RNA: THF (Tetrahydrofolate) riboswitch aptamer
Organism: Dorea sp. CAG:317
RNA sequence: AGCAGAGUAGAAAUGUGUGCGUUAAGUGCCGGCUGGACGGGGAGUUGCCAGCCAGAUGAAGGAGAAGUGUCCGCGGUACAUAUUUCGCAUCCCGCUGCU
Numbered sequence: 001a002g003c004a005g006a007g008u009a010g011a012a013a014u015g016u017g018u019g020c021g022u023u024a025a026g027u028g029c030c031g032g033c034u035g036g037a038c039g040g041g042g043a044g045u046u047g048c049c050a051g052c053c054a055g056a057u058g059a060a061g062g063a064g065a066a067g068u069g070u071c072c073g074c075g076g077u078a079c080a081u082a083u084u085u086c087g088c089a090u091c092c093c094g095c096u097g098c099u
Stems, first nucleotide, its partner, number of pairs: 001099005010086010020075003026057002029055001031053006040092003044088001061072003